[Rfam]
RNA sequence: CGGGGAGGCCGCGGGACGGACGGGGAUGGUGGAUCACCACCGGGGAGCGGCAUGCUGUGUAGACGACGGGUCGUUCGCCUGGGCCCCGGGU
Numbered sequence: 001c002g003g004g005g006a007g008g009c010c011g012c013g014g015g016a017c018g019g020a021c022g023g024g025g026a027u028g029g030u031g032g033a034u035c036a037c038c039a040c041c042g043g044g045g046a047g048c049g050g051c052a053u054g055c056u057g058u059g060u061a062g063a064c065g066a067c068g069g070g071u072c073g074u075u076c077g078c079c080u081g082g083g084c085c086c087c088g089g090g091u
Stems, first nucleotide, its partner, number of pairs: 003056002006053001008051005017044001019079001021077003029040004068086005